Record summary
Rfam assigns this 62-nucleotide RNA from Caenorhabditis brenneri to the family "mir-60 microRNA precursor family". Gene Ontology terms of the family: miRNA-mediated post-transcriptional gene silencing and RISC complex. NCBI's taxonomy places the organism under Eukaryota, Protostomia, Rhabditomorpha, Peloderinae, Caenorhabditis. A reference for the family is Lau et al. (2001), "An abundant class of tiny RNAs with probable regulatory roles in Caenorhabditis elegans", Science. The family's consensus secondary structure was predicted with RNAalifold.

[Rfam]
RNA sequence: AGCUGGAAAGGUGACAUAAAAUCAUGUCAGAGAACGCGAUAUUAUGCACAUUUUCUAGUCCA
Numbered sequence: 001a002g003c004u005g006g007a008a009a010g011g012u013g014a015c016a017u018a019a020a021a022u023c024a025u026g027u028c029a030g031a032g033a034a035c036g037c038g039a040u041a042u043u044a045u046g047c048a049c050a051u052u053u054u055c056u057a058g059u060c061c062a
Base pairs, nucleotide, nucleotide: 002059003058004057005056006055007054008053009052010051011049012048013047015046016045017044018043019042021040022039023038025036026035027034